[Rfam]
RNA sequence: ACUCAGGCACGAUCUUCGCCCGCUGUAGGAGUGAAGAACCGACCUGAAGUUUCAACCCUGAGGGA
Numbered sequence: 001a002c003u004c005a006g007g008c009a010c011g012a013u014c015u016u017c018g019c020c021c022g023c024u025g026u027a028g029g030a031g032u033g034a035a036g037a038a039c040c041g042a043c044c045u046g047a048a049g050u051u052u053c054a055a056c057c058c059u060g061a062g063g064g065a
Stems, first nucleotide, its partner, number of pairs: 001050003004046004013037007020029002
Rfam assigns this 65-nucleotide RNA sequence from Corynebacterium ammoniagenes to the family "L31-Corynebacteriaceae ribosomal protein leader".
It is annotated as a cis-regulatory leader.
NCBI's taxonomy places the organism under Bacteria, Bacillati, Actinomycetota, Actinomycetes, Corynebacterium ammoniagenes.
The sequence is in the family's curated seed alignment.
A reference for the family is Eckert and Weinberg (2020), "Discovery of 20 novel ribosomal leader candidates in bacteria and archaea", BMC Microbiol.